[Rfam]
RNA sequence: AAACAGCUUUGAUUCUUUGACAGUUUUGGACCCCCAAGGCAAAAAAAAAAAAUUAAAAAUUGACACGUGGCACCUCACUUAGGGUGCCACGUCAGCGUUGACCGAGUCAACAAUGGACUGGGGGUCCAAAACUGCCAAAGAAUCAAAAUAUAUGGGGCUCGUU
Numbered sequence: 001a002a003a004c005a006g007c008u009u010u011g012a013u014u015c016u017u018u019g020a021c022a023g024u025u026u027u028g029g030a031c032c033c034c035c036a037a038g039g040c041a042a043a044a045a046a047a048a049a050a051a052a053u054u055a056a057a058a059a060u061u062g063a064c065a066c067g068u069g070g071c072a073c074c075u076c077a078c079u080u081a082g083g084g085u086g087c088c089a090c091g092u093c094a095g096c097g098u099u100g101a102c103c104g105a106g107u108c109a110a111c112a113a114u115g116g117a118c119u120g121g122g123g124g125u126c127c128a129a130a131a132c133u134g135c136c137a138a139a140g141a142a143u144c145a146a147a148a149u150a151u152a153u154g155g156g157g158c159u160c161g162u163u
Base pairs, nucleotide, nucleotide: 005151006149008147009146010145011144012143013142014141015140016139017138018137019136021134022133023132024131025130026129027128028127029126030125031124032123033122034121035120036119065092066091068089069088070087071086072085073084074083
RNA: MIR2619 microRNA precursor family